[Rfam]
Rfam assigns this 507-nucleotide RNA sequence from Actinosynnema mirum to the family "Saccharopolyspora sRNA 350". The family has 2 seed sequences and 1,170 matches in Rfam 15.1. On this family, see Liu et al., PLoS One 2013: "Prediction and characterization of small non-coding RNAs related to secondary metabolites in Saccharopolyspora erythraea". It is annotated as an antisense RNA.
RNA sequence: CUGGCGGUGAAGGCCCACUGCUCGGUCUCGCCGGUCAGGACGCCGUUGCCGAAGUGGUCGCCGUCGGCGAGCACGUCGAGCACGGUCUGGUUGCCGUACUCGCCCUCGCCGAUCUUGUCGACCUUGCCGUGCGCGACGAGGAAGAGCUCCUCGGCGCGGUCGCCGCGCUGCACCAGCAGGUCGCCGGGGGUGAACUCGCGCUGCACGAACCGGUUCGCGAGCGCGGUCAGCACGUCGUCGUCCUCGAAGGCGCGCAGCGCGGGCACCUCGCGCAGCUCCUGCGGGAUGACGCGGAUGUCGGAACCGGUGCUGGUGAAGGUGAUCCGCCCGUCGCCGACGGCGUAGGUGAGCCUGCGGUUGACCCGGUACGUGCCCGCCUGGGUCUGCACCCAGGGCAGCUCGCGCAGCAGCCAGCGGGCCGAGAUGGCCUGCAUCUGCGGGGCGGACUUGGUCGUGGUGGCCAGGUUGCGGGCGGCGGCGGUGCCCAGGCUCUGGCGCGUGCGCUCG
Numbered sequence: 001c002u003g004g005c006g007g008u009g010a011a012g013g014c015c016c017a018c019u020g021c022u023c024g025g026u027c028u029c030g031c032c033g034g035u036c037a038g039g040a041c042g043c044c045g046u047u048g049c050c051g052a053a054g055u056g057g058u059c060g061c062c063g064u065c066g067g068c069g070a071g072c073a074c075g076u077c078g079a080g081c082a083c084g085g086u087c088u089g090g091u092u093g094c095c096g097u098a099c100u101c102g103c104c105c106u107c108g109c110c111g112a113u114c115u116u117g118u119c120g121a122c123c124u125u126g127c128c129g130u131g132c133g134c135g136a137c138g139a140g141g142a143a144g145a146g147c148u149c150c151u152c153g154g155c156g157c158g159g160u161c162g163c164c165g166c167g168c169u170g171c172a173c174c175a176g177c178a179g180g181u182c183g184c185c186g187g188g189g190g191u192g193a194a195c196u197c198g199c200g201c202u203g204c205a206c207g208a209a210c211c212g213g214u215u216c217g218c219g220a221g222c223g224c225g226g227u228c229a230g231c232a233c234g235u236c237g238u239c240g241u242c243c244u245c246g247a248a249g250g251c252g253c254g255c256a257g258c259g260c261g262g263g264c265a266c267c268u269c270g271c272g273c274a275g276c277u278c279c280u281g282c283g284g285g286a287u288g289a290c291g292c293g294g295a296u297g298u299c300g301g302a303a304c305c306g307g308u309g310c311u312g313g314u315g316a317a318g319g320u321g322a323u324c325c326g327c328c329c330g331u332c333g334c335c336g337a338c339g340g341c342g343u344a345g346g347u348g349a350g351c352c353u354g355c356g357g358u359u360g361a362c363c364c365g366g367u368a369c370g371u372g373c374c375c376g377c378c379u380g381g382g383u384c385u386g387c388a389c390c391c392a393g394g395g396c397a398g399c400u401c402g403c404g405c406a407g408c409a410g411c412c413a414g415c416g417g418g419c420c421g422a423g424a425u426g427g428c429c430u431g432c433a434u435c436u437g438c439g440g441g442g443c444g445g446a447c448u449u450g451g452u453c454g455u456g457g458u459g460g461c462c463a464g465g466u467u468g469c470g471g472g473c474g475g476c477g478g479c480g481g482u483g484c485c486c487a488g489g490c491u492c493u494g495g496c497g498c499g500u501g502c503g504c505u506c507g
Stems, first nucleotide, its partner, number of pairs: 006390004011385002014382003020325001022322003026318001028316002035313004040308002045305001047303001049301004054233002058229001060227005065111004075103001077102004082097005117222002122217001127212001129210002131206001133204003138199001140197001143196002149192001155188001157186004162177001165174001234296003240290003244286002250282003254278001256277003259271003329342004354377004360373001361371002391431004396426002399423003403418001405416001407415001437476002440473001443470002446467001447465006477506002481502002484499001486497001
The source organism's lineage runs through Bacteria, Bacillati, Actinomycetes, Actinosynnema and Actinosynnema mirum.